Rfam assigns this 87-nucleotide RNA from Butyrivibrio sp. YAB3001 to the family "ZMP/ZTP riboswitch aptamer (pfl RNA motif)". The family's consensus secondary structure is taken from published work. A reference for the family is Jones et al. (2019), "Co-crystal structure of the Fusobacterium ulcerans ZTP riboswitch using an X-ray free-electron laser", Acta Crystallogr F Struct Biol Commun. It scores 63 bits against the family's covariance model.

RNA sequence: AAGUGUCUGUACAACUGGCGGAUAAGUGGGUAACCACAUGGGAGUACAGAUAAUAAUAUUUGAAUGUCGACCGCCUGGGCAACCGCU
Numbered sequence: 001a002a003g004u005g006u007c008u009g010u011a012c013a014a015c016u017g018g019c020g021g022a023u024a025a026g027u028g029g030g031u032a033a034c035c036a037c038a039u040g041g042g043a044g045u046a047c048a049g050a051u052a053a054u055a056a057u058a059u060u061u062g063a064a065u066g067u068c069g070a071c072c073g074c075c076u077g078g079g080c081a082a083c084c085g086c087u
Stems, first nucleotide, its partner, number of pairs: 004052009015041002017075005026037004065081004